[Rfam]
RNA sequence: UAGACUAAAAUGCCGAAUCUCAGAGCAGCAAAAGCUCUGGUACGGGGGACUUCUUUAUAUGGGGUGAAUGAGCAUGAGCAAGCUAACAUGCGCUAGGGAAACCUCUUCCCGAACCCGUCAACUAACCUCGGAGGCCUUAAGGAGGCAAGUC
Dot-bracket structure: ...........(((....((..................))..(((((....(........)(((.....(.(((((..........))))).)..((((.......))))...))).........)))))..)))................
The family of this 151-nucleotide sequence from Paenibacillus sp. N3.4 is "c-di-AMP riboswitch aptamer (ydaO/yuaA leader)".
The family has 106 seed sequences and 7,607 matches in Rfam 15.1.
The match comes from Rfam's covariance-model search (74 bits).
Taxonomically the source falls in Paenibacillus (Bacteria, Bacillati, Bacillota, Paenibacillaceae).